[Rfam]
RNA sequence: CCAAAGGCUCUUUUCAGAGCCAAUCACUUUCUCCAUGAAAAACGCU
Numbered sequence: 001c002c003a004a005a006g007g008c009u010c011u012u013u014u015c016a017g018a019g020c021c022a023a024u025c026a027c028u029u030u031c032u033c034c035a036u037g038a039a040a041a042a043c044g045c046u
Base pairs, nucleotide, nucleotide: 006021007020008019009018010017011016
The record is a 46-nucleotide RNA from Rhinopithecus roxellana, which matches "Histone 3' UTR stem-loop" in Rfam. Rfam 15.1 lists 44,596 matches to the family in 976 species. Rfam classes the family as a cis-regulatory element. Rfam links the family to the GO term mRNA 3'-end processing by stem-loop binding and cleavage. A reference for the family is Williams and Marzluff (1995), "The sequence of the stem and flanking sequences at the 3' end of histone mRNA are critical determinants for the binding of the stem-loop binding protein", Nucleic Acids Res. Rfam's curators write: The mRNAs of metazoan histone genes lack a poly-A tail. 3' end processing occurs at a site between a highly conserved stem-loop (modelled by this family) and a purine rich region around 20 nts downstream (the histone downstream element, or HDE). The stem-loop is bound by a 31 kDa stem-loop binding protein (SLBP - also termed the histone hairpin binding protein, or HBP). Together with U7 snRNA binding of the HDE, SLBP binding nucleate s the formation of the processing complex. The histone 3' UTR stem-loop is also involved in nucleocytoplasmic transport of the mRNA, and in stability regulation and translation efficiency in the cytoplasm.